The family of this 142-nucleotide RNA sequence is "Group II catalytic intron D1-D4-4". Gene Ontology term of the family: Group II intron splicing. It is one of the family's seed sequences. On this family, see Chu et al., EMBO J 2001: "Control of branch-site choice by a group II intron". The family has 90 seed sequences and 840 matches in Rfam 15.1. From the family's description: Group II introns are found in rRNA, tRNA and mRNA of organelles in fungi, plants and protists, and also in mRNA in bacteria.
RNA sequence: UCACAGGUGCAAGUCCUGUCUGGGGAGUUGUCGGGACACCCCAGUAGCUACCAAGACGAUCCGAAGGGCAACUGACUGGUCGAAGCUCUUGGGACAGAGGCCCACCGUGGGUGGGUCAGCAAGCCGGCGGGCCGCAACAUGU
Number, nucleotide and partner (000 for none) at each position: 001u000002c000003a000004c000005a000006g000007g000008u000009g000010c000011a000012a000013g000014u000015c000016c000017u000018g000019u000020c044021u043022g042023g041024g040025g000026a000027g000028u000029u000030g000031u000032c000033g000034g000035g000036a000037c000038a000039c000040c024041c023042c022043a021044g020045u000046a000047g000048c000049u000050a000051c092052c091053a090054a089055g088056a000057c082058g081059a080060u079061c078062c000063g000064a000065a000066g073067g072068g000069c000070a000071a000072c067073u066074g000075a000076c000077u000078g061079g060080u059081c058082g057083a000084a000085g000086c000087u000088c055089u054090u053091g052092g051093g000094a000095c000096a000097g000098a000099g117100g116101c115102c114103c113104a112105c000106c000107g000108u000109g000110g000111g000112u104113g103114g102115g101116u100117c099118a000119g135120c134121a000122a000123g000124c000125c000126g000127g000128c000129g000130g000131g000132c000133c000134g120135c119136a000137a000138c000139a000140u000141g000142u000